[Rfam]
RNA: Makes More Granules Regulator RNA (mmgR)
Organism: Roseomonas indoligenes
RNA sequence: CUGGCCCGCCAUUCUUGGACGUUUCCUCCCUAAACUCGGCGGCACCCUCGGGUGCCGCCUUUUCUUUGCGCUCG
Numbered sequence: 001c002u003g004g005c006c007c008g009c010c011a012u013u014c015u016u017g018g019a020c021g022u023u024u025c026c027u028c029c030c031u032a033a034a035c036u037c038g039g040c041g042g043c044a045c046c047c048u049c050g051g052g053u054g055c056c057g058c059c060u061u062u063u064c065u066u067u068g069c070g071c072u073c074g
Base pairs, nucleotide, nucleotide: 004020006018007017038059039058040057041056042055043054044053045052046051